About this RNA: The record is a 100-nucleotide RNA from Anabarilius grahami, which matches "mir-214 microRNA precursor family" in Rfam. Its family is annotated with miRNA-mediated post-transcriptional gene silencing and RISC complex in the Gene Ontology. The organism belongs to Anabarilius, within Eukaryota. Pairs were carried over by alignment from the consensus structure, which was predicted with RNAalifold.
[Rfam]
RNA sequence: CGUCCAGUGUCGAGGUGUGUGCGCCUGUCUACACUUGCUGUGCAGAGGAUCCUGAGGCUGUACAGCAGGCACAGACAGGCAGACAGACAGCGAAACACAC
Dot-bracket structure: .................((...((((((((...(.((((((.(((............))).)))))).)...))))))))...))...............